[Rfam]
RNA sequence: UUAACCCGGUGGGGGUGCCGACAAGGCUGAGAGGCAUGAUGCCAACCCUUAGAACCUGAUCUGGGUAAUGCCAGCGGAGGGAAACGGGGGACGAACAUC
Numbered sequence: 001u002u003a004a005c006c007c008g009g010u011g012g013g014g015g016u017g018c019c020g021a022c023a024a025g026g027c028u029g030a031g032a033g034g035c036a037u038g039a040u041g042c043c044a045a046c047c048c049u050u051a052g053a054a055c056c057u058g059a060u061c062u063g064g065g066u067a068a069u070g071c072c073a074g075c076g077g078a079g080g081g082a083a084a085c086g087g088g089g090g091a092c093g094a095a096c097a098u099c
Base pairs, nucleotide, nucleotide: 006087007086008085010083011049012048013047014046017027018026019025035041036040055080056079057078061074062073063072064071
About this RNA: This 99-nucleotide RNA sequence from Syntrophothermus lipocalidus belongs to the Rfam family "TPP riboswitch aptamer (THI element)". The base pairs follow the family's consensus structure, which is taken from published work. The source organism's lineage runs through Bacteria, Bacillota, Clostridia, Eubacteriales and Syntrophothermus lipocalidus.